[Rfam]
RNA sequence: UCGGGCCACGGCGAUGGGGCUCGCCGCAACCGCCCACCCCCGGGCUGACGGUCCCUACCAGGUC
Numbered sequence: 001u002c003g004g005g006c007c008a009c010g011g012c013g014a015u016g017g018g019g020c021u022c023g024c025c026g027c028a029a030c031c032g033c034c035c036a037c038c039c040c041c042g043g044g045c046u047g048a049c050g051g052u053c054c055c056u057a058c059c060a061g062g063u064c
Base pairs, nucleotide, nucleotide: 010025011024012023013022016055017054018053019052020051021050032045033044034043035042
This 64-nucleotide RNA sequence from Aquihabitans sp. G128 belongs to the Rfam family "Fluoride riboswitch aptamer (crcB RNA motif)".
A search with the family's covariance model found it, with a score of 43 bits.
NCBI's taxonomy places the organism under Bacteria, Acidimicrobiia, Acidimicrobiales, Iamiaceae, Aquihabitans.